[Rfam]
RNA sequence: UGUCUCCUCCAUCUCCUCAAAGGAUGGAUUCAGCCCCAGGCUUUACCGCUUGGGGCUUUUUUUU
Numbered sequence: 001u002g003u004c005u006c007c008u009c010c011a012u013c014u015c016c017u018c019a020a021a022g023g024a025u026g027g028a029u030u031c032a033g034c035c036c037c038a039g040g041c042u043u044u045a046c047c048g049c050u051u052g053g054g055g056c057u058u059u060u061u062u063u064u
Stems, first nucleotide, its partner, number of pairs: 008028006032057008
The family of this 64-nucleotide RNA sequence from [Acidovorax] ebreus is "Betaproteobacteria toxic small RNA".
For this family Rfam cites "A vast collection of microbial genes that are toxic to bacteria" (Kimelman et al., Genome Res, 2012).
The family's consensus secondary structure was predicted with WAR.
The sequence is in the family's curated seed alignment.
From the family's description: Overexpression in amino aid rich medium attenuates growth, suggesting role in repressing amino acid intake and metabolism.